[Rfam]
RNA sequence: UGGAUAAAUUAUUUUAUUCGACUGUAUUCACGGCGUAAAAUAAGAGAUUACACUGUUUUUAAAACGGAAAGUGAAUCAAUUAACAUAAUACAUUCCU
Numbered sequence: 001u002g003g004a005u006a007a008a009u010u011a012u013u014u015u016a017u018u019c020g021a022c023u024g025u026a027u028u029c030a031c032g033g034c035g036u037a038a039a040a041u042a043a044g045a046g047a048u049u050a051c052a053c054u055g056u057u058u059u060u061a062a063a064a065c066g067g068a069a070a071g072u073g074a075a076u077c078a079a080u081u082a083a084c085a086u087a088a089u090a091c092a093u094u095c096c097u
Base pairs, nucleotide, nucleotide: 002096003095004094010090011089012088013087015085017083018082020081021080023078024077026076027075028074029073030072031071034066035065036064037059038058039057040056041055042054
Dot-bracket structure: .(((.....((((.(.((.((.((.((((((..(((((((((...........))))))....)))....)))))))).)))).).))))...))).

A member of the RNA family "MIR6152 microRNA precursor family" from Nicotiana sylvestris, 97 nucleotides long. It scores 98 bits against the family's covariance model.